Rhizobiales sRNA Atu_At1: a 108-nucleotide RNA from Nitratireductor sp. StC3.
The family's RNA type in Rfam is small RNA.
Taxonomically the source falls in Nitratireductor (Bacteria, Pseudomonadati, Hyphomicrobiales, Phyllobacteriaceae).

RNA sequence: CUGCGGGCCGCGUCAACCGGGCGCGGCGGUACGGCGAACAGGACGGAUUUUCCCGGUUUCCCCUCCUGGCCAACGAAUCGGCAGACGAGCGCCUGUCCCGCCCGGCCC
Dot-bracket structure: .....((((.((((.....)))).(((((...((((..(((((.(................).)))))(((........))).......))))...)).))).)))).